[Rfam]
RNA sequence: UCAGGUGUGGAAUUAUAGAUAGCGUGGGUGUGUGACCUUGUUUGUUACACAAAGAUCACCACCCCCUGUCUGCUUUCCACUCCUGA
Dot-bracket structure: ((((..((((.......(((((...(((((.((((.(((............))).))))))))).)))))......))))..))))
mir-BART16 microRNA precursor family: an 86-nucleotide sequence from Lymphocryptovirus macacinegamma4. The base pairs follow the family's consensus structure, which was predicted with RNAalifold.